[Rfam]
RNA sequence: GGCUGCAAGUUUGAGGCCAUAGUAAAAGCGCUCGUGGCACGGCCCUGUCAGAUUUCAAAUGAAUCUAUGAAUUCUGCU
Numbered sequence: 001g002g003c004u005g006c007a008a009g010u011u012u013g014a015g016g017c018c019a020u021a022g023u024a025a026a027a028g029c030g031c032u033c034g035u036g037g038c039a040c041g042g043c044c045c046u047g048u049c050a051g052a053u054u055u056c057a058a059a060u061g062a063a064u065c066u067a068u069g070a071a072u073u074c075u076g077c078u
Stems, first nucleotide, its partner, number of pairs: 013045001015044004021078004026073002028040001030038001050066006
This 78-nucleotide RNA sequence from Crocodylus porosus belongs to the Rfam family "Mammalian CPEB3 ribozyme". Rfam describes the family as follows. The mammalian CPEB3 ribozyme is a self cleaving RNA located in the second intron of the CPEB3 gene which belongs to a family of genes regulating messenger RNA polyadenylation. The organism belongs to Crocodylus, within Eukaryota.